[Rfam]
Shown here is a 114-nucleotide RNA sequence from Rhizobium sp. Root482, a member of the family "Alphaproteobacterial ar15". The family is grouped with related families in Rfam's "suhB sRNA clan". Its family is annotated with protein binding in the Gene Ontology. The family has 61 seed sequences and 316 matches in Rfam 15.1. It scores 108 bits against the family's covariance model.
RNA sequence: AGCUGAUGCAAAUGGUGGCUCUUCUUCCUCCCAGCGCCACCGCAGCAGCUGUUCCCCUCUGGAGGUUUUAACCUUCACACCUAAAGGGCCCUGCAUAUGCUGAGGCCCUUUUUU
Numbered sequence: 001a002g003c004u005g006a007u008g009c010a011a012a013u014g015g016u017g018g019c020u021c022u023u024c025u026u027c028c029u030c031c032c033a034g035c036g037c038c039a040c041c042g043c044a045g046c047a048g049c050u051g052u053u054c055c056c057c058u059c060u061g062g063a064g065g066u067u068u069u070a071a072c073c074u075u076c077a078c079a080c081c082u083a084a085a086g087g088g089c090c091c092u093g094c095a096u097a098u099g100c101u102g103a104g105g106c107c108c109u110u111u112u113u114u
Base pairs, nucleotide, nucleotide: 001050002049003048004047005046007044008043009042015040016039017038018037060077061076062075063074064073065072066071085109086108087107088106089105090104091102093100094099